[Rfam]
Nucleotides: 203
Stems, first nucleotide, its partner, number of pairs: 026177019046157004
Number, partner (000 for none) and nucleotide at each position: 001000u002000u003000u004000a005000a006000g007000c008000g009000c010000a011000a012000c013000a014000u015000u016000a017000u018000u019000u020000u021000u022000u023000u024000u025000a026177u027176c028175c029174a030173a031172u032171u033170u034169u035168g036167g037166u038165c039164g040163u041162u042161u043160g044159u045000g046157u047156u048155a049154u050000u051000u052000g053000a054000a055000a056000u057000u058000c059000u060000u061000u062000u063000a064000u065000g066000a067000u068000u069000a070000a071000u072000a073000u074000u075000u076000u077000u078000a079000u080000u081000g082000u083000u084000a085000u086000u087000a088000a089000a090000u091000g092000a093000u094000a095000a096000a097000a098000c099000a100000u101000a102000a103000a104000u105000a106000a107000u108000a109000c110000u111000u112000u113000a114000u115000g116000c117000g118000u119000g120000g121000c122000u123000u124000a125000u126000g127000u128000u129000u130000u131000u132000a133000u134000u135000u136000u137000u138000u139000u140000u141000a142000a143000a144000a145000a146000a147000a148000a149000a150000u151000u152000a153000a154049a155048u156047a157046a158000a159044a160043c161042a162041g163040a164039c165038g166037a167036u168035u169034a170033a171032a172031g173030u174029u175028g176027g177026a178000a179000a180000c181000a182000g183000a184000a185000a186000c187000u188000c189000a190000u191000g192000g193000c194000u195000g196000c197000g198000c199000u200000u201000a202000a203000a
Overview:
The family of this 203-nucleotide sequence from Oryza barthii is "MIR812 microRNA precursor family". A search with the family's covariance model found it, with a score of 161 bits. Gene Ontology terms of the family: RISC complex and miRNA-mediated post-transcriptional gene silencing.